[Rfam]
RNA sequence: AGAGGUAGUGUGAGGCCAUAGCAGAAGCACUCAUGGUGUGGCCAUGUCAGAUUCCAAAAAUUCUGAAUUCUGCA
Numbered sequence: 001a002g003a004g005g006u007a008g009u010g011u012g013a014g015g016c017c018a019u020a021g022c023a024g025a026a027g028c029a030c031u032c033a034u035g036g037u038g039u040g041g042c043c044a045u046g047u048c049a050g051a052u053u054c055c056a057a058a059a060a061u062u063c064u065g066a067a068u069u070c071u072g073c074a
Base pairs, nucleotide, nucleotide: 014043015042016041017040021073022072023071024070025069026068027039028038029037048065049064050063051062053060
The family of this 74-nucleotide RNA sequence from Alligator sinensis is "Mammalian CPEB3 ribozyme". Lineage of the source: Eukaryota > Opisthokonta > Bilateria > Chordata > Alligator. Pairs were carried over by alignment from the consensus structure, which is taken from published work.